[Rfam]
Rfam assigns this 86-nucleotide RNA sequence from Crypturellus undulatus to the family "Small nucleolar RNA SNORD35".
RNA sequence: GGCGCGUGAUGCUCAUCUCACGAUGGUCUUCCGAGCCCCGUGGGGGCUCUGGCGACAGUGCCACACGGCUUCGCUGAUGCCAAGCG
Numbered sequence: 001g002g003c004g005c006g007u008g009a010u011g012c013u014c015a016u017c018u019c020a021c022g023a024u025g026g027u028c029u030u031c032c033g034a035g036c037c038c039c040g041u042g043g044g045g046g047c048u049c050u051g052g053c054g055a056c057a058g059u060g061c062c063a064c065a066c067g068g069c070u071u072c073g074c075u076g077a078u079g080c081c082a083a084g085c086g
Stems, first nucleotide, its partner, number of pairs: 001081004
About the family: U35 is a C/D box snoRNA located in intron 6 of ribosomal protein L13A and intron 3 of ribosomal protein S11 in humans and at homologous positions in mouse and chicken ribosomal protein genes. U35 guides the methylation of 2'-O-ribose sites in 28S rRNA. NCBI's taxonomy places the organism under Eukaryota, Craniata, Dinosauria, Coelurosauria, Crypturellus.